[Rfam]
RNA sequence: UGAGGUCAGUGAUGUUUUUAUUAUUUGCCUACAUUGUCUGAUAAUCUUUUCUAGAUUAUGAUGUGUUUAAAUAAUCUGAGACCUCU
Numbered sequence: 001u002g003a004g005g006u007c008a009g010u011g012a013u014g015u016u017u018u019u020a021u022u023a024u025u026u027g028c029c030u031a032c033a034u035u036g037u038c039u040g041a042u043a044a045u046c047u048u049u050u051c052u053a054g055a056u057u058a059u060g061a062u063g064u065g066u067u068u069a070a071a072u073a074a075u076c077u078g079a080g081a082c083c084u085c086u
Base pairs, nucleotide, nucleotide: 002085004083005082006081007080
Small nucleolar RNA SNORD34: an 86-nucleotide RNA sequence from Trifolium pratense. The source organism's lineage runs through Eukaryota, Spermatophyta, fabids, Hologalegina and Trifolium. Rfam describes the family as follows. snoRNA U34 is found in intron 5 of the ribosomal protein L13a gene in humans. The family's consensus secondary structure was predicted with PFOLD. The family has 14 seed sequences and 1,319 matches in Rfam 15.1. The match comes from Rfam's covariance-model search (42 bits). Gene Ontology terms of the family: RNA processing and nucleolus.